[Rfam]
RNA sequence: UGACGGGGGCCCGCACAAGCGGAGGAACAUGUGGUUUAAUUCGAUGAUACGCGAGGAACCUUACCCAGGCUUAAAUUGCAGAUGAAUAUAGUAGAAAUAUUAUAGCCUUCGGGCAUCUGUGAAGGUGCUGCAUGGUUGUCGUCAGCUCGUGCCGUGAGGUGUCGGCUUAAGUGCCAUAACGAGCGCAACCCUUAUUGAUAGUUACUAACAGGUUAAGCUGAGGACUCUAUCGAGACUGCCGUCGUAAGAUGCGAGGAAGGUGGGGAUGACGUCAAAUCAGCACGGCCCUUACGUCUGGGGCUACACACGUGUUACAAUGGGGGGUACAGAAGGUCGCUACCUGGCAACAGGAUGCUAAUCCCAAAAGCCUCUCUCAGUUCGGAUUGGAGUCUGCAACCCGACUCCAUGAAGCUGGAUUCGCUAGUAAUCGCGCAUCAGCCACGGCGCGGUGAAUACGUUCCCGGGCCUUGUACACACCGCCCGUCAAGCCAUGGGAGCCGGGGGUACCUGAAGUACGUAACCGCAAGGAGCGUCCUAGGGUAAAACUGGUGACUGGGGCUAAGUCGUAACAAGGUAGCCGUACCGGAAGGUGCGGCUGGA
Number, nucleotide and partner (000 for none) at each position: 001u474002g473003a471004c470005g469006g000007g468008g467009g466010c465011c464012c463013g462014c000015a458016c457017a000018a000019g421020c420021g419022g418023a417024g315025g000026a313027a312028c311029a310030u309031g308032u307033g306034g304035u303036u000037u000038a000039a000040u055041u054042c053043g052044a000045u000046g000047a000048u000049a000050c000051g000052c043053g042054a041055g040056g000057a000058a000059c000060c000061u000062u000063a000064c299065c298066c297067a296068g295069g294070c293071u000072u000073a000074a000075a000076u122077u121078g120079c000080a118081g117082a116083u115084g114085a000086a000087u104088a103089u102090a101091g100092u099093a098094g000095a000096a000097a000098u093099a092100u091101u090102a089103u088104a087105g000106c113107c112108u000109u000110c000111g000112g107113g106114c084115a083116u082117c081118u080119g000120u078121g077122a076123a000124g288125g287126u000127g286128c285129u284130g283131c000132a000133u282134g281135g277136u276137u275138g273139u000140c271141g270142u000143c000144a000145g184146c183147u182148c181149g180150u179151g160152c159153c158154g000155u000156g000157a000158g153159g152160u151161g000162u000163c000164g175165g174166c173167u000168u000169a000170a000171g000172u000173g166174c165175c164176a000177u000178a000179a150180c149181g148182a147183g146184c145185g000186c000187a000188a000189c000190c265191c264192u263193u262194a000195u233196u232197g231198a230199u229200a228201g227202u000203u000204a000205c222206u221207a000208a000209c220210a219211g218212g000213u000214u000215a000216a000217g000218c211219u210220g209221a206222g205223g000224a000225c000226u000227c201228u200229a199230u198231c197232g196233a195234g000235a000236c256237u255238g000239c253240c251241g250242u249243c248244g000245u000246a000247a000248g243249a242250u241251g240252c000253g239254a000255g237256g236257a000258a000259g000260g000261u000262g193263g192264g191265g190266a000267u000268g000269a000270c141271g140272u000273c138274a000275a137276a136277u135278c000279a000280g000281c134282a133283c130284g129285g128286c127287c125288c124289u000290u000291a000292c000293g070294u069295c068296u067297g066298g065299g064300g000301c000302u000303a035304c034305a000306c033307a032308c031309g030310u029311g028312u027313u026314a000315c024316a000317a000318u000319g373320g372321g371322g370323g369324g368325u367326a000327c000328a000329g000330a000331a000332g361333g360334u000335c000336g355337c354338u000339a000340c000341c350342u349343g348344g000345c000346a000347a000348c343349a342350g341351g000352a000353u000354g337355c336356u000357a000358a000359u000360c333361c332362c000363a000364a000365a000366a000367g325368c324369c323370u322371c321372u320373c319374u000375c000376a000377g000378u000379u000380c411381g000382g000383a000384u000385u406386g405387g404388a403389g402390u401391c400392u000393g000394c000395a000396a000397c000398c000399c000400g391401a390402c389403u388404c387405c386406a385407u000408g000409a000410a000411g380412c000413u000414g000415g000416a000417u023418u022419c021420g020421c019422u000423a000424g000425u000426a000427a450428u449429c448430g447431c446432g445433c444434a000435u000436c000437a000438g000439c000440c000441a000442c000443g000444g433445c432446g431447c430448g429449g428450u427451g000452a000453a000454u000455a000456c000457g016458u015459u000460c000461c000462c013463g012464g011465g010466c009467c008468u007469u005470g004471u003472a000473c002474a001475c000476a000477c573478c000479g570480c000481c000482c566483g565484u000485c000486a000487a560488g559489c558490c557491a000492u555493g554494g553495g000496a000497g550498c549499c548500g547501g546502g000503g000504g000505u542506a541507c540508c539509u000510g000511a000512a000513g535514u000515a533516c532517g531518u530519a000520a000521c528522c527523g000524c000525a000526a000527g522528g521529a000530g518531c517532g516533u515534c000535c513536u000537a000538g000539g508540g507541u506542a505543a000544a000545a000546c501547u500548g499549g498550u497551g000552a000553c494554u493555g492556g000557g490558g489559c488560u487561a000562a000563g000564u000565c483566g482567u000568a000569a000570c479571a000572a000573g477574g000575u598576a597577g596578c595579c594580g593581u592582a591583c590584c589585g000586g000587a000588a000589g584590g583591u582592g581593c580594g579595g578596c577597u576598g575599g000600a000
RNA: Bacterial small subunit ribosomal RNA, nucleotides 910 to 1509